[Rfam]
RNA: Saccharopolyspora sRNA 350
Organism: Streptomyces vinaceus
RNA sequence: CGGGCGGUGUACUCCCAGAUCGCCUCGUCGUCGACGAGGGAGUCCUCGCCGAAGUAGGCGCCGUCGGCGACGGUCCGCAGGACGGCGUCGUCGCCGUAGGGGCCGGGGCCGAUCUGCUCGACGCGGCCGUGCGCGAGCAGGAACACGGUGUCGGAGGCGCUGCCGAAGGAGGUCAGCUCCUGGCCGGCCUCGAAGUCGAUCUGGCGGCACCGCUGGGCGAGCUCGGUGAGCACGUCCAGGUCCUCGUAGGUGCGCAGCAGCGGGAGUUCACCGAGCUCGGCGGGGAUGACCUGGACCUGGGUCCCGGUCUUGACGAACUCCACCCGUCCGUCGCCGACCGAGUAGCUCAGCCGCCGGUUGACCCGGUACGUGCCGCCCUGCACGGACACCCACGGGAGCAUCUUCAGCAGCCACCGGGAGGUGAUCUCCUGCAUCUGCGGCGCGGACUUGGUCGUGGUUGCCAAGUUCCGCGCGGCCGCGGUCGCAAGACUCCUCUGCGGUGCCU
Numbered sequence: 001c002g003g004g005c006g007g008u009g010u011a012c013u014c015c016c017a018g019a020u021c022g023c024c025u026c027g028u029c030g031u032c033g034a035c036g037a038g039g040g041a042g043u044c045c046u047c048g049c050c051g052a053a054g055u056a057g058g059c060g061c062c063g064u065c066g067g068c069g070a071c072g073g074u075c076c077g078c079a080g081g082a083c084g085g086c087g088u089c090g091u092c093g094c095c096g097u098a099g100g101g102g103c104c105g106g107g108g109c110c111g112a113u114c115u116g117c118u119c120g121a122c123g124c125g126g127c128c129g130u131g132c133g134c135g136a137g138c139a140g141g142a143a144c145a146c147g148g149u150g151u152c153g154g155a156g157g158c159g160c161u162g163c164c165g166a167a168g169g170a171g172g173u174c175a176g177c178u179c180c181u182g183g184c185c186g187g188c189c190u191c192g193a194a195g196u197c198g199a200u201c202u203g204g205c206g207g208c209a210c211c212g213c214u215g216g217g218c219g220a221g222c223u224c225g226g227u228g229a230g231c232a233c234g235u236c237c238a239g240g241u242c243c244u245c246g247u248a249g250g251u252g253c254g255c256a257g258c259a260g261c262g263g264g265a266g267u268u269c270a271c272c273g274a275g276c277u278c279g280g281c282g283g284g285g286a287u288g289a290c291c292u293g294g295a296c297c298u299g300g301g302u303c304c305c306g307g308u309c310u311u312g313a314c315g316a317a318c319u320c321c322a323c324c325c326g327u328c329c330g331u332c333g334c335c336g337a338c339c340g341a342g343u344a345g346c347u348c349a350g351c352c353g354c355c356g357g358u359u360g361a362c363c364c365g366g367u368a369c370g371u372g373c374c375g376c377c378c379u380g381c382a383c384g385g386a387c388a389c390c391c392a393c394g395g396g397a398g399c400a401u402c403u404u405c406a407g408c409a410g411c412c413a414c415c416g417g418g419a420g421g422u423g424a425u426c427u428c429c430u431g432c433a434u435c436u437g438c439g440g441c442g443c444g445g446a447c448u449u450g451g452u453c454g455u456g457g458u459u460g461c462c463a464a465g466u467u468c469c470g471c472g473c474g475g476c477c478g479c480g481g482u483c484g485c486a487a488g489a490c491u492c493c494u495c496u497g498c499g500g501u502g503c504c505u
Base pairs, nucleotide, nucleotide: 006390007389008388009387010386012384016380018328019327022324025322027320031316032315040311041310042309044307045306048305049301050300052298054233055232059228060227061226062225063224065111066110067109068108073103075102076101078099082097083096084095085094086093116222117221118220119219122217126213127212129210130209132206133205134204136202137201141197143196144195149192150191154189159184160183162177165174166173234296235295236294237293240290241289242288244286245285253279254278256277257276258275260271262269329342331340353377355375356374357373361371362370391431392430394428395427396426397425399423400422401421403418404417405416407415437479438478439477440476442471443470444469445468446467447465448464449463450462451461452460480504481503483499484498485497487496488495